This 117-nucleotide RNA from Streptococcus uberis belongs to the Rfam family "PreQ1-II (pre queuosine) riboswitch aptamer".
Gene Ontology term of the family: queuosine biosynthetic process.
Rfam's curators write: preQ1-II riboswitch was first reported for Weinberg et al. 2007 it was recognised in Streptococcaceae and Lactococcus families in 5' untranslated regions of genes of a membrane protein classified as COG4708 or DUF988. Meyers et al. 2008 confirm that preQ1-II recognise the queuosine (Q) precursor pre-queuosine 1 (preQ1).
[Rfam]
RNA sequence: UAUGCUACAAUAAUAAAGUUGCUUAGCAACCCUUGGUGCUUAGUUCCCUUUCGCCAAGCAUAUUACAAACGGCAUCAAUCAUUUUCAAUUGAUGUAUCGUUAAAGGAGAAAAAAAUG
Dot-bracket structure: .................(((((...))))).(((((((......[.[[[[.))))))).........(((((........................))))).]]]].].........